This 65-nucleotide RNA sequence from Saezia sanguinis belongs to the Rfam family "Betaproteobacteria toxic small RNA".
The base pairs follow the family's consensus structure, which was predicted with WAR.
The family has 51 seed sequences and 951 matches in Rfam 15.1.
RNA sequence: UGUCUCCUCCACCUCCUCCAAUUGGUGGAUUAAGCCCAGAUUAUGAAGUAUCUGGGCUUUUUUUU
Numbered sequence: 001u002g003u004c005u006c007c008u009c010c011a012c013c014u015c016c017u018c019c020a021a022u023u024g025g026u027g028g029a030u031u032a033a034g035c036c037c038a039g040a041u042u043a044u045g046a047a048g049u050a051u052c053u054g055g056g057c058u059u060u061u062u063u064u065u
Stems, first nucleotide, its partner, number of pairs: 008029006033058008
The match comes from Rfam's covariance-model search (66 bits). Rfam's curators write: Overexpression in amino aid rich medium attenuates growth, suggesting role in repressing amino acid intake and metabolism. For this family Rfam cites "A vast collection of microbial genes that are toxic to bacteria" (Kimelman et al., Genome Res, 2012).